Background:
The family of this 132-nucleotide RNA from Ruminiclostridium cellobioparum is "c-di-AMP riboswitch aptamer (ydaO/yuaA leader)". The source organism's lineage runs through Bacteria, Bacillota, Clostridia, Eubacteriales and Ruminiclostridium cellobioparum subsp. termitidis.
RNA sequence: UGCCAAUAAAAGCUGAAUCCUCGAGAGAGGUACGGAGGAACCAAAUUUUUGGGGUGAGUCCAUGCAAAUGGUAGGGAGGUCCUAUUGCCCGAGCCCGGCAGCUAACUUCGGAAGCGAAUUAUAGGAGGAGCC
Numbered sequence: 001u002g003c004c005a006a007u008a009a010a011a012g013c014u015g016a017a018u019c020c021u022c023g024a025g026a027g028a029g030g031u032a033c034g035g036a037g038g039a040a041c042c043a044a045a046u047u048u049u050u051g052g053g054g055u056g057a058g059u060c061c062a063u064g065c066a067a068a069u070g071g072u073a074g075g076g077a078g079g080u081c082c083u084a085u086u087g088c089c090c091g092a093g094c095c096c097g098g099c100a101g102c103u104a105a106c107u108u109c110g111g112a113a114g115c116g117a118a119u120u121a122u123a124g125g126a127g128g129a130g131c132c
Stems, first nucleotide, its partner, number of pairs: 012115003019030004033110005042051002052096003060071004074090003